This 431-nucleotide RNA sequence from Altererythrobacter lutimaris belongs to the Rfam family "Bacterial RNase P class A". A reference for the family is Brown (1999), "The Ribonuclease P Database", Nucleic Acids Res. About the family: Ribonuclease P (RNase P) is a ubiquitous endoribonuclease, found in archaea, bacteria and eukarya as well as chloroplasts and mitochondria.

RNA sequence: CCAGGGGGCCGGGCAGCCGCGUCAGAAAUCAAUUUCUGCCGAGGAAAGUCCGGGCUCCACGACAUAAGGGUGGCGGGUAACGCCCGCCCGGCGAGUGUGGCUUUCGGGCCUCGCGAAGCCGAGGGAAAGUGCCACAGAGAGUAUACCGCCGAUGGCCCCUAAAGGGCACAGGCAAGGGUGAAAGGGUGCGGCAAGAGCGCACCGGGGUUCUGGCAACAGCGCCCGCAUGGCAAACCCCACUCGGAGCAAGGCCAAAUAGGGGUCUCGUGCCCGUGCAAACGGGUAGUGGCAUGUCGCCGCGAGAGAUCCGGGUUGGCUGCUUGAGCGCGUGCAGCAAUGCACCGCCUAGACGAAUGGCUGCCUCUAUGGGGCUGGUCCGGCAACGGAAACCGCUCACAGGACAGAACCCGGCUUACAGGCCCCCUGGUAUU
Numbered sequence: 001c002c003a004g005g006g007g008g009c010c011g012g013g014c015a016g017c018c019g020c021g022u023c024a025g026a027a028a029u030c031a032a033u034u035u036c037u038g039c040c041g042a043g044g045a046a047a048g049u050c051c052g053g054g055c056u057c058c059a060c061g062a063c064a065u066a067a068g069g070g071u072g073g074c075g076g077g078u079a080a081c082g083c084c085c086g087c088c089c090g091g092c093g094a095g096u097g098u099g100g101c102u103u104u105c106g107g108g109c110c111u112c113g114c115g116a117a118g119c120c121g122a123g124g125g126a127a128a129g130u131g132c133c134a135c136a137g138a139g140a141g142u143a144u145a146c147c148g149c150c151g152a153u154g155g156c157c158c159c160u161a162a163a164g165g166g167c168a169c170a171g172g173c174a175a176g177g178g179u180g181a182a183a184g185g186g187u188g189c190g191g192c193a194a195g196a197g198c199g200c201a202c203c204g205g206g207g208u209u210c211u212g213g214c215a216a217c218a219g220c221g222c223c224c225g226c227a228u229g230g231c232a233a234a235c236c237c238c239a240c241u242c243g244g245a246g247c248a249a250g251g252c253c254a255a256a257u258a259g260g261g262g263u264c265u266c267g268u269g270c271c272c273g274u275g276c277a278a279a280c281g282g283g284u285a286g287u288g289g290c291a292u293g294u295c296g297c298c299g300c301g302a303g304a305g306a307u308c309c310g311g312g313u314u315g316g317c318u319g320c321u322u323g324a325g326c327g328c329g330u331g332c333a334g335c336a337a338u339g340c341a342c343c344g345c346c347u348a349g350a351c352g353a354a355u356g357g358c359u360g361c362c363u364c365u366a367u368g369g370g371g372c373u374g375g376u377c378c379g380g381c382a383a384c385g386g387a388a389a390c391c392g393c394u395c396a397c398a399g400g401a402c403a404g405a406a407c408c409c410g411g412c413u414u415a416c417a418g419g420c421c422c423c424c425u426g427g428u429a430u431u
Base pairs, nucleotide, nucleotide: 001427002426003425004424005423006422007421008420009419010418011416012362013361014360015359016358017357018356020041021040023038024037025036026035027034028033046414047413048412050411051410052409053408054407055246056245057244058243064294065293066292068242069241070240071239072238073087074086075085076084077083088123089121090120091119092118124237125236129235130234131231132230133229146177147176148173149172150171153168154167156165185203186202187201188200189199190198204226205224206223207222208221210219211218212217250318251317252316253315260309261308262307263306264305265304286300287299288298289297290296325345326344327343329342330341331340332339333338